The record is a 107-nucleotide sequence from Armillaria gallica, which matches "tRNA" in Rfam. The family has 954 seed sequences and 5,335,975 matches in Rfam 15.1. Pairs were carried over by alignment from the consensus structure, which is taken from published work.
RNA sequence: GGCACUAUAGCCAAGUGGUUAAGGCGACAGAUUAGAAUUACAGGGACUCUCCACUGUAUAUCAUCUGUUACUCUCUGAGUGCGCAGGUUCAAAUCCUGCUGGUGUCG
Numbered sequence: 001g002g003c004a005c006u007a008u009a010g011c012c013a014a015g016u017g018g019u020u021a022a023g024g025c026g027a028c029a030g031a032u033u034a035g036a037a038u039u040a041c042a043g044g045g046a047c048u049c050u051c052c053a054c055u056g057u058a059u060a061u062c063a064u065c066u067g068u069u070a071c072u073c074u075c076u077g078a079g080u081g082c083g084c085a086g087g088u089u090c091a092a093a094u095c096c097u098g099c100u101g102g103u104g105u106c107g
Base pairs, nucleotide, nucleotide: 001106002105003104004103005102006101007100010025011024012023028077029076030075031074083099084098085097086096087095
Dot-bracket structure: (((((((..(((..........)))..((((..........................................)))).....(((((.......)))))))))))).